[Rfam]
RNA sequence: UACUAGCCCUUCUAUUGAACUGUUCUGUCACUCUCGGACAGAGAACAAUUUGUUCUUUGACAGAGAGGGACCAAACAGUUCAGUAGCUAAAGCGUCCUAUAAC
Numbered sequence: 001u002a003c004u005a006g007c008c009c010u011u012c013u014a015u016u017g018a019a020c021u022g023u024u025c026u027g028u029c030a031c032u033c034u035c036g037g038a039c040a041g042a043g044a045a046c047a048a049u050u051u052g053u054u055c056u057u058u059g060a061c062a063g064a065g066a067g068g069g070a071c072c073a074a075a076c077a078g079u080u081c082a083g084u085a086g087c088u089a090a091a092g093c094g095u096c097c098u099a100u101a102a103c
Stems, first nucleotide, its partner, number of pairs: 001099002008092001010090002012086012024064007044054004

mir-8517 microRNA precursor family: a 103-nucleotide RNA sequence from Plutella xylostella. It scores 82 bits against the family's covariance model. Gene Ontology terms of the family: miRNA-mediated post-transcriptional gene silencing and RISC complex. The family's consensus secondary structure was predicted with RNAalifold.